[Rfam]
RNA sequence: GCGGUCGUGGCGGAAUUGGCAGACGCACUGGAUUUAGGUUCCAGCGGGCAACCGUGGAGGUUCAAGUCCUCUCGACCGCA
Numbered sequence: 001g002c003g004g005u006c007g008u009g010g011c012g013g014a015a016u017u018g019g020c021a022g023a024c025g026c027a028c029u030g031g032a033u034u035u036a037g038g039u040u041c042c043a044g045c046g047g048g049c050a051a052c053c054g055u056g057g058a059g060g061u062u063c064a065a066g067u068c069c070u071c072u073c074g075a076c077c078g079c080a
Base pairs, nucleotide, nucleotide: 001079002078003077004076005075006074007073010026011025012024028044029043030042031041032040056072057071058070059069060068